[Rfam]
RNA sequence: UUGCGAGUUCAAGGCCAUAGAAGAAGCACUCAUGGUGCGGCCCCGUCAGAUUCCAACAAAUCUGCAAAUUCUGCC
Numbered sequence: 001u002u003g004c005g006a007g008u009u010c011a012a013g014g015c016c017a018u019a020g021a022a023g024a025a026g027c028a029c030u031c032a033u034g035g036u037g038c039g040g041c042c043c044c045g046u047c048a049g050a051u052u053c054c055a056a057c058a059a060a061u062c063u064g065c066a067a068a069u070u071c072u073g074c075c
Base pairs, nucleotide, nucleotide: 013042014041015040016039020074022072023071024070025069026038027037028036047064048063049062050061051060052059